[Rfam]
RNA sequence: CUAUGCGCAGGGAAUGAAAUCUCCCUCGAUUACAUUAUCGAAACCGCGCAAGCUAAUGAUUUCUGCAUUUUU
Numbered sequence: 001c002u003a004u005g006c007g008c009a010g011g012g013a014a015u016g017a018a019a020u021c022u023c024c025c026u027c028g029a030u031u032a033c034a035u036u037a038u039c040g041a042a043a044c045c046g047c048g049c050a051a052g053c054u055a056a057u058g059a060u061u062u063c064u065g066c067a068u069u070u071u072u
Base pairs, nucleotide, nucleotide: 010025011024012023013022016063017062018061019060020059021058046053047052

Background: The record is a 72-nucleotide RNA from Erysipelotrichaceae bacterium MTC7, which matches "Fluoride riboswitch aptamer (crcB RNA motif)" in Rfam. It scores 37 bits against the family's covariance model.